[Rfam]
RNA sequence: UUUAGCUAUGAUUGUCCAAACGCAAUUCUUGUUGAUAUCCAAUACUCAAGGGUUGUGACUGGACAUCGCGGCUCGA
Number, nucleotide and partner (000 for none) at each position: 001u000002u075003u000004a073005g072006c071007u070008a000009u068010g067011a066012u065013u000014g064015u063016c062017c061018a060019a000020a000021c057022g056023c055024a054025a053026u052027u051028c050029u049030u048031g047032u000033u000034g000035a000036u000037a000038u000039c000040c000041a000042a000043u000044a000045c000046u000047c031048a030049a029050g028051g027052g026053u025054u024055g023056u022057g021058a000059c000060u018061g017062g016063a015064c014065a012066u011067c010068g009069c000070g007071g006072c005073u004074c000075g002076a000

A member of the RNA family "mir-219 microRNA precursor family" from Drosophila persimilis, 76 nucleotides long.
Rfam 15.1 lists 1,318 matches to the family in 774 species.
The family's consensus secondary structure was predicted with RNAalifold.
Rfam links the family to the GO terms RISC complex and miRNA-mediated post-transcriptional gene silencing.
A reference for the family is Lim et al. (2003), "Vertebrate microRNA genes", Science.
The sequence is in the family's curated seed alignment.